[Rfam]
RNA sequence: UGUGGAAACGCCUAGUCCUGUCACCACGCCCGGGUCCACCAGCAACACCGCUUGGCAGGAGCGGGGGACCCAAUUUCGGGCCGUCUCCGGACGGUCCUUGGGGUGAAGUCCUCGUGUGAGCGCCCGCAAGGUCGGGUGGCAAACCGCGAGGGCCGGGUGAUCUACCUCCACCCGAACCCGACAGCUCACCUCGUAGGCGCUGGAGGUUCAACCA
Dot-bracket structure: ........((((...((((((((.............................))))))))((((((....((..........................))(((.....((((((((............................))))))))..((((...........))))...))).........)))))).))))...............
The family of this 214-nucleotide RNA from Phycicoccus sp. Root563 is "c-di-AMP riboswitch aptamer (ydaO/yuaA leader)". This family represents a conserved RNA structure found upstream of the ydaO and yuaA genes in Bacillus subtilis and related genes in other bacteria.